Shown here is a 399-nucleotide RNA sequence from Erinaceus europaeus, a member of the family "Small Cajal body-specific RNA 2". The base pairs follow the family's consensus structure, which is taken from published work. Rfam 15.1 lists 612 matches to the family in 498 species.

[Rfam]
RNA sequence: CCCAGCGCGAGGGAGAGUGGCCUGGAGCGAUGCUGUUGUGUGGGCUUCGUGGCGGCGGUGCGUGGAGGGCGCGUGUGGGGCGAGUGAGGAUGCGCGAGUGUGUGAGUGAGUGGGCGUGCAAGGCGAGUGUGUGCGCCAGCCCUGCGCCCCUCUCCCCGCCUACACCUUGAUCUUAUUUGAUCGGGUUGUGACUUCAGCCCUGCCGGUCCGACCCGAAAUGAAAAGCUUCCCUCCUGCGAAGCCCCUUGCUCGGGGCGCUGUGCAGCGAGGCCUCUCAGGCGGCGGCCAUGCGGCGGUCCCGGAAGUCCCGGGGCCCGGCGCUCAGAAAUGAUGAAUUGAUCAGAUAGACGAGGCCGGGCUUGUCCCGCGCCAUUGAUUAUCGAGGCGAUUCUGAUCUGA
Numbered sequence: 001c002c003c004a005g006c007g008c009g010a011g012g013g014a015g016a017g018u019g020g021c022c023u024g025g026a027g028c029g030a031u032g033c034u035g036u037u038g039u040g041u042g043g044g045c046u047u048c049g050u051g052g053c054g055g056c057g058g059u060g061c062g063u064g065g066a067g068g069g070c071g072c073g074u075g076u077g078g079g080g081c082g083a084g085u086g087a088g089g090a091u092g093c094g095c096g097a098g099u100g101u102g103u104g105a106g107u108g109a110g111u112g113g114g115c116g117u118g119c120a121a122g123g124c125g126a127g128u129g130u131g132u133g134c135g136c137c138a139g140c141c142c143u144g145c146g147c148c149c150c151u152c153u154c155c156c157c158g159c160c161u162a163c164a165c166c167u168u169g170a171u172c173u174u175a176u177u178u179g180a181u182c183g184g185g186u187u188g189u190g191a192c193u194u195c196a197g198c199c200c201u202g203c204c205g206g207u208c209c210g211a212c213c214c215g216a217a218a219u220g221a222a223a224a225g226c227u228u229c230c231c232u233c234c235u236g237c238g239a240a241g242c243c244c245c246u247u248g249c250u251c252g253g254g255g256c257g258c259u260g261u262g263c264a265g266c267g268a269g270g271c272c273u274c275u276c277a278g279g280c281g282g283c284g285g286c287c288a289u290g291c292g293g294c295g296g297u298c299c300c301g302g303a304a305g306u307c308c309c310g311g312g313g314c315c316c317g318g319c320g321c322u323c324a325g326a327a328a329u330g331a332u333g334a335a336u337u338g339a340u341c342a343g344a345u346a347g348a349c350g351a352g353g354c355c356g357g358g359c360u361u362g363u364c365c366c367g368c369g370c371c372a373u374u375g376a377u378u379a380u381c382g383a384g385g386c387g388a389u390u391c392u393g394a395u396c397u398g399a
Stems, first nucleotide, its partner, number of pairs: 054148004059075006088103001090101004106136003111131002114128002117125002176224003181216004186211003190208001194206002197203002245305003251302001253300003257297003262294002265291003269287004273282002313319002323398004333391006352371003357366002

Source information:
A search with the family's covariance model found it, with a score of 348 bits. Rfam links the family to the GO terms nucleolus and RNA processing. Rfam classes the family as a small Cajal body RNA.